[Rfam]
RNA sequence: CAGCGCUUUGGGAGCUGAAACUCAAGGGCGGUAGCGUA
Numbered sequence: 001c002a003g004c005g006c007u008u009u010g011g012g013a014g015c016u017g018a019a020a021c022u023c024a025a026g027g028g029c030g031g032u033a034g035c036g037u038a
Base pairs, nucleotide, nucleotide: 008025009024010023011022012021
This 38-nucleotide RNA from Shigella sonnei belongs to the Rfam family "JUMPstart RNA". The base pairs follow the family's consensus structure, which is taken from published work. The organism belongs to Shigella sonnei, within Bacteria. The family has 128 seed sequences and 288 matches in Rfam 15.1. The family's RNA type in Rfam is cis-regulatory element. Rfam's curators put it in the seed alignment.